Rfam assigns this 120-nucleotide sequence from Actinotalea soli to the family "TPP riboswitch aptamer (THI element)". Rfam describes the family as follows. Vitamin B(1) in its active form thiamin pyrophosphate (TPP) is an essential coenzyme that is synthesised by coupling of pyrimidine and thiazole moieties in bacteria.
[Rfam]
RNA sequence: GACAAGCCCCCGGGGAGCGCGGACGCGCUGAGAGUGUGGUCGGACCGAGAGGUCGAGCCACUGACCCGUGGAACCUGAUCCGGUUGAUACCGGCGUAGGGAGAUGGGCAAGGCACCGUGU
Dot-bracket structure: .....((((.((((.(((((....)))).......((((..................)))))..)))).....((((..((((......))))..)))).....))))............
Numbered sequence: 001g002a003c004a005a006g007c008c009c010c011c012g013g014g015g016a017g018c019g020c021g022g023a024c025g026c027g028c029u030g031a032g033a034g035u036g037u038g039g040u041c042g043g044a045c046c047g048a049g050a051g052g053u054c055g056a057g058c059c060a061c062u063g064a065c066c067c068g069u070g071g072a073a074c075c076u077g078a079u080c081c082g083g084u085u086g087a088u089a090c091c092g093g094c095g096u097a098g099g100g101a102g103a104u105g106g107g108c109a110a111g112g113c114a115c116c117g118u119g120u
Stems, first nucleotide, its partner, number of pairs: 006108004011068004016062001017028004036061004074099004080093004
It scores 70 bits against the family's covariance model.